[Rfam]
RNA sequence: GAGCUCAUAUCAGUGGCGAGCCUAAGAGGGUAAACCUCGAAGGCAUAGGGAAACCGAGUGCUCGCAACUCAGGCAACUGAGUGAGGAGCAGGGUCUGUCAGGGCCUGAAGUCACUGGUAUGAGGCUAGAAACCGGGCGAUCUAGACCAGGGCAGGCUGAAGCCGGGGGAAACUCCGGUGGAGGGCCGAAUGGGGGUUCUGACGUGCAAUUCGUUCCCUUGACCUUGGUCUAGGGGCAAAAGACCAAUCUAGCCCGGUGAUAUCUAGUU
Numbered sequence: 001g002a003g004c005u006c007a008u009a010u011c012a013g014u015g016g017c018g019a020g021c022c023u024a025a026g027a028g029g030g031u032a033a034a035c036c037u038c039g040a041a042g043g044c045a046u047a048g049g050g051a052a053a054c055c056g057a058g059u060g061c062u063c064g065c066a067a068c069u070c071a072g073g074c075a076a077c078u079g080a081g082u083g084a085g086g087a088g089c090a091g092g093g094u095c096u097g098u099c100a101g102g103g104c105c106u107g108a109a110g111u112c113a114c115u116g117g118u119a120u121g122a123g124g125c126u127a128g129a130a131a132c133c134g135g136g137c138g139a140u141c142u143a144g145a146c147c148a149g150g151g152c153a154g155g156c157u158g159a160a161g162c163c164g165g166g167g168g169a170a171a172c173u174c175c176g177g178u179g180g181a182g183g184g185c186c187g188a189a190u191g192g193g194g195g196u197u198c199u200g201a202c203g204u205g206c207a208a209u210u211c212g213u214u215c216c217c218u219u220g221a222c223c224u225u226g227g228u229c230u231a232g233g234g235g236c237a238a239a240a241g242a243c244c245a246a247u248c249u250a251g252c253c254c255g256g257u258g259a260u261a262u263c264u265a266g267u268u
Base pairs, nucleotide, nucleotide: 005122006121007120008119009118010117011116012115013114014113015112016111017110020044021043022042023041026038027037028036029035048055049054060089061088062087063086067082068081069080070079071078072077092105093104094103095102125266126265128263132256133255134254135253136252137251141232142231143230144229145228146227147226148225149224150223151222152220154186155185156184157183161178162177163176164175165174166173167172192217193216194215195214198212200211201210234244235243
A member of the RNA family "Archaeal large subunit ribosomal RNA" from Acidianus brierleyi, 268 nucleotides of a longer RNA.
It scores 2873 bits against the family's covariance model.
The organism belongs to Acidianus, within Archaea.